The record is a 134-nucleotide RNA from Struthio camelus, which matches "Small nucleolar RNA SNORA41" in Rfam.
The organism belongs to Struthio camelus, within Eukaryota.
ACA41 is a member of the H/ACA class of snoRNA that guide the sites of modification of uridines to pseudouridines.
It scores 87 bits against the family's covariance model.
By type it is an H/ACA-box small nucleolar RNA.
RNA sequence: CUCCACAGCUUACUGGUCUGGAACUGUUCAGAACUGUAGCAGUUGCAGGAUUCCCUCUGUGGAAAAUAAACUGUUACAUGGUAUUAGCUCCUUCUCAGAACCUCUGAAAAGGACUUGCUAUGUAACUAACAGUG
Numbered sequence: 001c002u003c004c005a006c007a008g009c010u011u012a013c014u015g016g017u018c019u020g021g022a023a024c025u026g027u028u029c030a031g032a033a034c035u036g037u038a039g040c041a042g043u044u045g046c047a048g049g050a051u052u053c054c055c056u057c058u059g060u061g062g063a064a065a066a067u068a069a070a071c072u073g074u075u076a077c078a079u080g081g082u083a084u085u086a087g088c089u090c091c092u093u094c095u096c097a098g099a100a101c102c103u104c105u106g107a108a109a110a111g112g113a114c115u116u117g118c119u120a121u122g123u124a125a126c127u128a129a130c131a132g133u134g
Stems, first nucleotide, its partner, number of pairs: 003062004018048003022044005076123005089113005095107003